[Rfam]
A member of the RNA family "Small nucleolar RNA SNORD22" from Albula glossodonta, 128 nucleotides long. Gene Ontology terms of the family: RNA processing and nucleolus. Rfam 15.1 lists 1,081 matches to the family in 414 species. On this family, see Tycowski et al., Science 1994: "Requirement for intron-encoded U22 small nucleolar RNA in 18S ribosomal RNA maturation".
Nucleotides: 128
Stems, first nucleotide, its partner, number of pairs: 001127004
Number, partner (000 for none) and nucleotide at each position: 001127u002126c003125c004124c005000u006000g007000u008000g009000a010000u011000g012000a013000a014000a015000c016000c017000u018000g019000c020000a021000c022000a023000u024000g025000u026000c027000u028000u029000a030000c031000g032000c033000c034000c035000u036000g037000a038000g039000u040000c041000a042000g043000g044000a045000c046000c047000a048000g049000a050000a051000c052000c053000u054000g055000a056000a057000a058000a059000g060000g061000u062000g063000a064000a065000c066000c067000c068000a069000c070000u071000g072000g073000u074000g075000c076000u077000g078000c079000c080000a081000g082000g083000g084000c085000c086000a087000a088000a089000a090000g091000g092000g093000g094000a095000a096000g097000a098000c099000c100000u101000g102000u103000u104000g105000g106000g107000g108000u109000a110000u111000c112000c113000a114000a115000c116000u117000g118000u119000c120000u121000g122000a123000u124004g125003g126002g127001a128000c